[Rfam]
Nucleotides: 083
Stems, first nucleotide, its partner, number of pairs: 004053009015042002017071005027038004060078001062076003
Number, partner (000 for none) and nucleotide at each position: 001000g002000a003000g004053g005052u006051u007050u008049c009048g010047c011046g012045c013000c014000g015042c016041u017071g018070a019069c020068g021067g022000a023000a024000c025000a026000u027038g028037u029036g030035g031000a032000u033000u034000a035030c036029c037028a038027c039000a040000g041016g042015g043000a044000a045012g046011u047010g048009c049008g050007a051006a052005a053004c054000g055000a056000u057000a058000a059000c060078c061000g062076g063075c064074c065000g066000a067021c068020c069019g070018u071017c072000u073000g074064g075063g076062c077000a078060g079000u080000u081000u082000c083000a
This 83-nucleotide RNA from Feifania hominis belongs to the Rfam family "ZMP/ZTP riboswitch aptamer (pfl RNA motif)". Taxonomically the source falls in Feifania (Bacteria, Bacillati, Bacillota, Clostridia). A search with the family's covariance model found it, with a score of 60 bits.